[Rfam]
RNA sequence: UCAUUACCAAAGGGGUGCCGAAAGGCUGAGAUGCACAAGCUGUGCGAACUCUUUGUACCUGAUCCGGUUAAUACUGGCGUAGGGAUUGGUAACCAUAGAACC
Numbered sequence: 001u002c003a004u005u006a007c008c009a010a011a012g013g014g015g016u017g018c019c020g021a022a023a024g025g026c027u028g029a030g031a032u033g034c035a036c037a038a039g040c041u042g043u044g045c046g047a048a049c050u051c052u053u054u055g056u057a058c059c060u061g062a063u064c065c066g067g068u069u070a071a072u073a074c075u076g077g078c079g080u081a082g083g084g085a086u087u088g089g090u091a092a093c094c095a096u097a098g099a100a101c102c
Base pairs, nucleotide, nucleotide: 006090007089008088009087010086011052012051013050014049016046017026018025019024033045034044035043036042037041058083059082060081061080064077065076066075067074

The family of this 102-nucleotide sequence from Aliidiomarina taiwanensis is "TPP riboswitch aptamer (THI element)". A reference for the family is Winkler et al. (2002), "Thiamine derivatives bind messenger RNAs directly to regulate bacterial gene expression", Nature.